[Rfam]
RNA sequence: GUGAAGUUGAUCACAACAAACAUAUACCCCUUUGUUUGAAACCGUGAAAAAUUUCUCCCAUCCCCUUUGUUCGUAUUAUAGAAAAAUGCCCUGCCGCAGCGGGGCAUUUUU
Numbered sequence: 001g002u003g004a005a006g007u008u009g010a011u012c013a014c015a016a017c018a019a020a021c022a023u024a025u026a027c028c029c030c031u032u033u034g035u036u037u038g039a040a041a042c043c044g045u046g047a048a049a050a051a052u053u054u055c056u057c058c059c060a061u062c063c064c065c066u067u068u069g070u071u072c073g074u075a076u077u078a079u080a081g082a083a084a085a086a087u088g089c090c091c092u093g094c095c096g097c098a099g100c101g102g103g104g105c106a107u108u109u110u111u
Stems, first nucleotide, its partner, number of pairs: 003055006011047004017038006071081001073079001085108010
Dot-bracket structure: ..((((((..((((..((((((..........)))))).....))))..))))))...............(.(.....).)...((((((((((....))))))))))...
This 111-nucleotide RNA from Bacillus sp. B-jedd belongs to the Rfam family "RNA Staph. aureus E (RoxS)". Its family is annotated with regulation of translational initiation in the Gene Ontology. A reference for the family is Geissmann et al. (2009), "A search for small noncoding RNAs in Staphylococcus aureus reveals a conserved sequence motif for regulation", Nucleic Acids Res. The source organism's lineage runs through Bacteria, Bacillota, Bacilli, Caryophanales and Bacillus. About the family: It was shown to be regulated by the presence of nitric oxide (NO). In Bacillus subtilis it controls expression of genes with functions related to oxidative stress and oxidation-reduction reactions and it was renamed RoxS (for related to oxidative stress). The family's RNA type in Rfam is small RNA.